A member of the RNA family "TPP riboswitch aptamer (THI element)" from Saccharomonospora piscinae, 112 nucleotides long.
RNA sequence: GCACGCUGCCACGGGUGUCCGGCGCGCCGGGCUGAGAGGUGGGUUCGCGGCCCACGACCGUUCGCACCUGAAUCGGAUCAUGCCGACGCAGGAAGGGCACCGGACCUCCCAC
Numbered sequence: 001g002c003a004c005g006c007u008g009c010c011a012c013g014g015g016u017g018u019c020c021g022g023c024g025c026g027c028c029g030g031g032c033u034g035a036g037a038g039g040u041g042g043g044u045u046c047g048c049g050g051c052c053c054a055c056g057a058c059c060g061u062u063c064g065c066a067c068c069u070g071a072a073u074c075g076g077a078u079c080a081u082g083c084c085g086a087c088g089c090a091g092g093a094a095g096g097g098c099a100c101c102g103g104a105c106c107u108c109c110c111a112c
Stems, first nucleotide, its partner, number of pairs: 007099004011061004017032005039055007067092004073086004
Taxonomically the source falls in Saccharomonospora (Bacteria, Actinomycetota, Actinomycetes, Pseudonocardiaceae).